[Rfam]
RNA sequence: CACGUCGUCUCGGGAGAAGCCGCUCGCGGCUGCCGAAGGAGCAAUCCCUCCCCGGAAUCUCUCAGGCCCCCGUACCGAGCCGACAUG
Numbered sequence: 001c002a003c004g005u006c007g008u009c010u011c012g013g014g015a016g017a018a019g020c021c022g023c024u025c026g027c028g029g030c031u032g033c034c035g036a037a038g039g040a041g042c043a044a045u046c047c048c049u050c051c052c053c054g055g056a057a058u059c060u061c062u063c064a065g066g067c068c069c070c071c072g073u074a075c076c077g078a079g080c081c082g083a084c085a086u087g
Base pairs, nucleotide, nucleotide: 006082007081009079010078011077012076013075019030020029021028022027032067033066034065035063036062039061040060041059045055046054